[Rfam]
RNA sequence: GUUGAAGUUCAAGGCCAGAGCAGAAGUGUUCAUGGUGCAGCCCUGACAGAUUCCCACAAGUCAGCAAAUUCUGCU
Numbered sequence: 001g002u003u004g005a006a007g008u009u010c011a012a013g014g015c016c017a018g019a020g021c022a023g024a025a026g027u028g029u030u031c032a033u034g035g036u037g038c039a040g041c042c043c044u045g046a047c048a049g050a051u052u053c054c055c056a057c058a059a060g061u062c063a064g065c066a067a068a069u070u071c072u073g074c075u
Base pairs, nucleotide, nucleotide: 013042014041015040019075020074021073022072023071024070025069026038027037028036047064049062050061051060052059

Description
A member of the RNA family "Mammalian CPEB3 ribozyme" from Alligator mississippiensis, 75 nucleotides long. The organism belongs to Alligator, within Eukaryota. The family has 14 seed sequences and 5,706 matches in Rfam 15.1. Rfam describes the family as follows. The mammalian CPEB3 ribozyme is a self cleaving RNA located in the second intron of the CPEB3 gene which belongs to a family of genes regulating messenger RNA polyadenylation.